RNA sequence: AAGAAUCGUCUUACCUGAACAUUAUUAGAGUCAUAAUGGUACGUCUAAUACUGUCAGGUAAAGAUGUUUCUU
Numbered sequence: 001a002a003g004a005a006u007c008g009u010c011u012u013a014c015c016u017g018a019a020c021a022u023u024a025u026u027a028g029a030g031u032c033a034u035a036a037u038g039g040u041a042c043g044u045c046u047a048a049u050a051c052u053g054u055c056a057g058g059u060a061a062a063g064a065u066g067u068u069u070c071u072u
Stems, first nucleotide, its partner, number of pairs: 001072005007066004011061007020053002023050007
This 72-nucleotide RNA from Mesorhabditis spiculigera belongs to the Rfam family "mir-236 microRNA precursor family". The organism belongs to Mesorhabditis, within Eukaryota. Rfam links the family to the GO terms RISC complex and miRNA-mediated post-transcriptional gene silencing. The family has 8 seed sequences and 52 matches in Rfam 15.1. Pairs were carried over by alignment from the consensus structure, which was predicted with RNAalifold.